[Rfam]
RNA sequence: AGCACUUGGGUUUGUUUUUGUUAAGCUUGGGGGCAAAGACUUAUACACAGAUGCAAAAAUAAACCCUCUUUUACAACUCAUUGUUUAGGGUGAGUUUUGAGACAGGUAAGAAGGAACAUG
Numbered sequence: 001a002g003c004a005c006u007u008g009g010g011u012u013u014g015u016u017u018u019u020g021u022u023a024a025g026c027u028u029g030g031g032g033g034c035a036a037a038g039a040c041u042u043a044u045a046c047a048c049a050g051a052u053g054c055a056a057a058a059a060u061a062a063a064c065c066c067u068c069u070u071u072u073a074c075a076a077c078u079c080a081u082u083g084u085u086u087a088g089g090g091u092g093a094g095u096u097u098u099g100a101g102a103c104a105g106g107u108a109a110g111a112a113g114g115a116a117c118a119u120g
Stems, first nucleotide, its partner, number of pairs: 002054003006050003011045001014040008026031001066114002069111005074099001075096007
Notes: The record is a 120-nucleotide RNA sequence from Capra hircus, which matches "Small nucleolar RNA SNORA40" in Rfam. Rfam classes the family as an H/ACA-box small nucleolar RNA. From the family's description: The snoRNA ACA 40 belongs to the H/ACA family of snoRNAs and guides the pseudouridylation of 28S rRNA subunit at position U4565. Its family is annotated with nucleolus and RNA processing in the Gene Ontology.